[Rfam]
RNA sequence: AACGUGCUCCGGGGUCGGUGUGAAUCCGAACCGGCGGUGACAGUCCGCGAACCGAGUCAUGGCGCAGCCACGACGAAGUUGAUCCGGUGAAAUUCCGGAACCGACGGUGAUGCGAGAGCAAUCUCGCUAGUCCGGAUGGGAGGCAGCACGGG
Numbered sequence: 001a002a003c004g005u006g007c008u009c010c011g012g013g014g015u016c017g018g019u020g021u022g023a024a025u026c027c028g029a030a031c032c033g034g035c036g037g038u039g040a041c042a043g044u045c046c047g048c049g050a051a052c053c054g055a056g057u058c059a060u061g062g063c064g065c066a067g068c069c070a071c072g073a074c075g076a077a078g079u080u081g082a083u084c085c086g087g088u089g090a091a092a093u094u095c096c097g098g099a100a101c102c103g104a105c106g107g108u109g110a111u112g113c114g115a116g117a118g119c120a121a122u123c124u125c126g127c128u129a130g131u132c133c134g135g136a137u138g139g140g141a142g143g144c145a146g147c148a149c150g151g152g
Base pairs, nucleotide, nucleotide: 003150004149005148006147007146008145009143010142016028017027018026032103033102034048035047036046037045043101044100051079052078083099084098085097086096087095105134106133107132
Dot-bracket structure: ..((((((((.....(((.......)))...((((((.....[[))))..((.........................))...(((((.......)))))]])).(((........................))).......)).))))))..
This 152-nucleotide sequence from Microbacterium keratanolyticum belongs to the Rfam family "FMN riboswitch aptamer (RFN element)". Its family is annotated with FMN binding in the Gene Ontology.